[Rfam]
Source information: A member of the RNA family "Potassium channel RNA editing signal" from Orchesella cincta, 113 nucleotides long. The family's consensus secondary structure is taken from published work. NCBI's taxonomy places the organism under Eukaryota, Metazoa, Entomobryomorpha, Entomobryoidea, Orchesella.
Nucleotides: 113
Stems, first nucleotide, its partner, number of pairs: 001113001004110002007106002010103001012101004017096002020093001036076002039073001048062003
Number, partner (000 for none) and nucleotide at each position: 001113a002000c003000a004110g005109g006000u007106a008105c009000g010103g011000u012101g013100a014099c015098a016000u017096g018095g019000u020093u021000c022000c023000a024000a025000a026000a027000a028000c029000c030000a031000u032000a033000g034000c035000u036076g037075g038000c039073a040000a041000a042000g043000u044000u045000g046000u047000u048062g049061g050060a051000g052000g053000a054000g055000u056000u057000u058000g059000c060050u061049c062048c063000c064000u065000g066000a067000g068000c069000g070000g071000u072000g073039u074000a075037c076036u077000u078000g079000u080000c081000a082000u083000c084000g085000c086000c087000c088000u089000u090000c091000c092000a093020g094000u095018c096017c097000c098015u099014g100013u101012c102000a103010u104000a105008g106007u107000c108000u109005c110004c111000a112000a113001u